[Rfam]
TPP riboswitch aptamer (THI element): a 115-nucleotide RNA from Parageobacillus caldoxylosilyticus.

Nucleotides: 115
Base pairs, nucleotide, nucleotide: 006103007102008101009100010099011065012064013063014062016059017032018031019030020029021028039058040057041056042055043054071096072095073094074093077090078089079088080087
Number, partner (000 for none) and nucleotide at each position: 001000c002000u003000u004000a005000u006103c007102u008101a009100c010099u011065a012064g013063g014062g015000g016059a017032g018031u019030c020029c021028a022000a023000u024000a025000g026000c027000u028021u029020g030019g031018a032017c033000u034000g035000a036000g037000a038000a039058a040057a041056g042055a043054a044000c045000g046000c047000g048000c049000u050000u051000a052000a053000g054043u055042u056041c057040u058039u059016u060000g061000a062014c063013c064012c065011u066000u067000u068000g069000a070000a071096c072095c073094u074093g075000a076000u077090c078089u079088g080087g081000g082000u083000u084000a085000u086000g087080c088079c089078a090077g091000c092000g093074u094073a095072g096071g097000g098000a099010a100009g101008u102007a103006g104000a105000u106000a107000g108000c109000g110000g111000a112000a113000g114000u115000g
Rfam describes the family as follows. Vitamin B(1) in its active form thiamin pyrophosphate (TPP) is an essential coenzyme that is synthesised by coupling of pyrimidine and thiazole moieties in bacteria. It scores 86 bits against the family's covariance model. The base pairs follow the family's consensus structure, which is taken from published work.